[Rfam]
RNA sequence: UGUCAUGCUUUUCCACAGCUUUCUUGAACUUCUUCUUCUUCUUCUUCUUCUUCUUAGAUUUCUUUCUCAUUGCCUAUAUCUUUCUUGAUGUGGCACAGAAUAAGUUCAAGAAAGCUGUGGGAGAACAUGGCAA
Numbered sequence: 001u002g003u004c005a006u007g008c009u010u011u012u013c014c015a016c017a018g019c020u021u022u023c024u025u026g027a028a029c030u031u032c033u034u035c036u037u038c039u040u041c042u043u044c045u046u047c048u049u050c051u052u053c054u055u056a057g058a059u060u061u062c063u064u065u066c067u068c069a070u071u072g073c074c075u076a077u078a079u080c081u082u083u084c085u086u087g088a089u090g091u092g093g094c095a096c097a098g099a100a101u102a103a104g105u106u107c108a109a110g111a112a113a114g115c116u117g118u119g120g121g122a123g124a125a126c127a128u129g130g131c132a133a
Stems, first nucleotide, its partner, number of pairs: 003130005013120003017116006024109004029104003033100004
The family of this 133-nucleotide sequence from Ricinus communis is "MIR396 microRNA precursor family". Gene Ontology terms of the family: RISC complex and miRNA-mediated post-transcriptional gene silencing. The sequence is in the family's curated seed alignment.